[Rfam]
RNA sequence: GUUUCAUUCGUGAUGGUGUUCCUUCUAAACCUGCAUGAAGGAACACCUGAUGUCCGGGAAAAU
Numbered sequence: 001g002u003u004u005c006a007u008u009c010g011u012g013a014u015g016g017u018g019u020u021c022c023u024u025c026u027a028a029a030c031c032u033g034c035a036u037g038a039a040g041g042a043a044c045a046c047c048u049g050a051u052g053u054c055c056g057g058g059a060a061a062a063u
Base pairs, nucleotide, nucleotide: 001063002062003061004060015047016046017045018044019043020042021041022040023039024038030037
RNA: Selenocysteine insertion sequence 1